[Rfam]
RNA sequence: GGGGGUGAUCGGUUUCGACGGUGAUCGUCGAGCCAGGAGAAGCGGGCCGAGGACGCACGGUUAUCUCGUCAACGCUCCGUGCAAACCCAUAGGUGCCGAUAACAAGCGCACCGACUUCGCCCUCGCCGCCUGAGCGAGCCUCGAAGUCCGUCAGCCUGAGCUAGCUUCCGUCUCAGAUCCUGGCGUCAUCUAGGGAGCCACUGCUCGCAGCCUUCGUCACCGGGGCUGCGGGGACUUCAAGGUGACUGAGCCCGUCCACCGCUCGUCUGCGUGACGGUGGGGGCCGAGAAAGGCAGAUGCAGACUGCGCCCGGAGAAGCCCUGGUUCCACGUCAUCGGACGCGGGUUCGAUUCCCGCCACCUCCACCA
Numbered sequence: 001g002g003g004g005g006u007g008a009u010c011g012g013u014u015u016c017g018a019c020g021g022u023g024a025u026c027g028u029c030g031a032g033c034c035a036g037g038a039g040a041a042g043c044g045g046g047c048c049g050a051g052g053a054c055g056c057a058c059g060g061u062u063a064u065c066u067c068g069u070c071a072a073c074g075c076u077c078c079g080u081g082c083a084a085a086c087c088c089a090u091a092g093g094u095g096c097c098g099a100u101a102a103c104a105a106g107c108g109c110a111c112c113g114a115c116u117u118c119g120c121c122c123u124c125g126c127c128g129c130c131u132g133a134g135c136g137a138g139c140c141u142c143g144a145a146g147u148c149c150g151u152c153a154g155c156c157u158g159a160g161c162u163a164g165c166u167u168c169c170g171u172c173u174c175a176g177a178u179c180c181u182g183g184c185g186u187c188a189u190c191u192a193g194g195g196a197g198c199c200a201c202u203g204c205u206c207g208c209a210g211c212c213u214u215c216g217u218c219a220c221c222g223g224g225g226c227u228g229c230g231g232g233g234a235c236u237u238c239a240a241g242g243u244g245a246c247u248g249a250g251c252c253c254g255u256c257c258a259c260c261g262c263u264c265g266u267c268u269g270c271g272u273g274a275c276g277g278u279g280g281g282g283g284c285c286g287a288g289a290a291a292g293g294c295a296g297a298u299g300c301a302g303a304c305u306g307c308g309c310c311c312g313g314a315g316a317a318g319c320c321c322u323g324g325u326u327c328c329a330c331g332u333c334a335u336c337g338g339a340c341g342c343g344g345g346u347u348c349g350a351u352u353c354c355c356g357c358c359a360c361c362u363c364c365a366c367c368a
Base pairs, nucleotide, nucleotide: 001364002363003362004361005360006359007358019337020336021335022334023333024332025331030327031326032325033324034323035322036321037320043312044311045310046309047308048068049067050066051065052064055082056081057080058079059078060077121146123144124143125142128139129138149185150184151183152182153181154180156176157175158174159173160172162170164198165197166196167195168194169193204232205231206230207229208228209227210226211225212224216246217245218244219243220242250284251283252282253281256280257279258278260276261275265304266303267302268301271298272297341357342356343355344354345353